[Rfam]
RNA sequence: GGGUUAAGAUACAUGACGUCCCGUAUAAUUCCGGUAAUAAGGAUCGGAAGUUCCUACCAGACACCGUAAAUGUCUGACUACGCAAAUUAACUGUACGGGG
Dot-bracket structure: ..................(..((((...(((((((.......)))))))........((((((.......))))))..))))..)...............